[Rfam]
RNA sequence: GCCCAAUUUCGCACGUGCCUGUGGUCGUGUGUCGGUCGGCGGGGAUCCGGACAAGAGGCCGGUCAACCGUCGGAAUAAAACCGGCAGCCGGAGGCGAAACCGGCGAACCUCGCCUGAGCGAGGGAUCGCGACUUAAAGCAACGACGGACCGGGCUUUU
Numbered sequence: 001g002c003c004c005a006a007u008u009u010c011g012c013a014c015g016u017g018c019c020u021g022u023g024g025u026c027g028u029g030u031g032u033c034g035g036u037c038g039g040c041g042g043g044g045a046u047c048c049g050g051a052c053a054a055g056a057g058g059c060c061g062g063u064c065a066a067c068c069g070u071c072g073g074a075a076u077a078a079a080a081c082c083g084g085c086a087g088c089c090g091g092a093g094g095c096g097a098a099a100c101c102g103g104c105g106a107a108c109c110u111c112g113c114c115u116g117a118g119c120g121a122g123g124g125a126u127c128g129c130g131a132c133u134u135a136a137a138g139c140a141a142c143g144a145c146g147g148a149c150c151g152g153g154c155u156u157u158u
Base pairs, nucleotide, nucleotide: 001154002153003152004151009144010143011142016140017139018138023133024132025131026130027129038071039070040069041068042067047062048061049060050059081103082102083101084100104128105127108123109122110121111120112119113118
Dot-bracket structure: ((((....(((....(((....(((((..........(((((....((((........))))....))))).........((((...............))))((..((((((....))))))...)))))))....))).)))......))))....
A member of the RNA family "Alphaproteobacterial sRNA ar45" from Methylosinus sporium, 158 nucleotides long. A reference for the family is del Val et al. (2012), "A survey of sRNA families in alpha-proteobacteria", RNA Biol. The match comes from Rfam's covariance-model search (65 bits).